[Rfam]
RNA sequence: UACAAGCUACGAUGUUCGUAAUCAUAAUAAGUUUUAACCUCUAAUGUAUGAAUAGGGAGUUUUAAAUUGGAACUCUAAUGUCGGGCCGUCACUGAGCGGAAGACAGGAAGGUUUCUGCAAACACCCACUUUGCGAAGUGGUGGUUUAAAACUUUUUAGAUAGAAAUUACGGCAAACGUGGCUGUACU
Dot-bracket structure: ....(((((((.(((.(((..........((((.(((((...............(((.((((...(..((((((.....((....((((......))))...)).....)))))))..)))).)))...............)).))).))))...............))))))..))))))).....
6S / SsrS RNA: a 187-nucleotide RNA sequence from Virgibacillus oceani. A search with the family's covariance model found it, with a score of 71 bits. The family's RNA type in Rfam is non-coding RNA gene.